About this RNA: Rfam assigns this 87-nucleotide sequence from Entomobacter blattae to the family "Glycine riboswitch aptamer". Taxonomically the source falls in Entomobacter (Bacteria, Pseudomonadati, Alphaproteobacteria, Acetobacterales). The match comes from Rfam's covariance-model search (69 bits).

RNA sequence: AUCAAGGUCAUGGGAGAGACCAUUCAAUUGGCGCCGAAGGAGCAACACCCCUUGGAAACUCUCAGGCAAAAGAACCAUGACACUCAA
Numbered sequence: 001a002u003c004a005a006g007g008u009c010a011u012g013g014g015a016g017a018g019a020c021c022a023u024u025c026a027a028u029u030g031g032c033g034c035c036g037a038a039g040g041a042g043c044a045a046c047a048c049c050c051c052u053u054g055g056a057a058a059c060u061c062u063c064a065g066g067c068a069a070a071a072g073a074a075c076c077a078u079g080a081c082a083c084u085c086a087a
Stems, first nucleotide, its partner, number of pairs: 007081007020031003033067003036063002040061003046054002